Rfam assigns this 56-nucleotide sequence from Clostridium thailandense to the family "Na+ riboswitch aptamer (DUF1646)". It scores 47 bits against the family's covariance model. Gene Ontology terms of the family: regulation of gene expression and sodium ion binding. For this family Rfam cites "Na(+) riboswitches regulate genes for diverse physiological processes in bacteria" (White et al., Nat Chem Biol, 2022).
RNA sequence: GGUUGAACAAGUAGAGAUUUGUUUCAAGGGUAAAUAGAUUUCUUGGGCGGGAAAUC
Numbered sequence: 001g002g003u004u005g006a007a008c009a010a011g012u013a014g015a016g017a018u019u020u021g022u023u024u025c026a027a028g029g030g031u032a033a034a035u036a037g038a039u040u041u042c043u044u045g046g047g048c049g050g051g052a053a054a055u056c
Stems, first nucleotide, its partner, number of pairs: 003027003006023006037056007
Dot-bracket structure: ..(((((((((......)))))).))).........(((((((......)))))))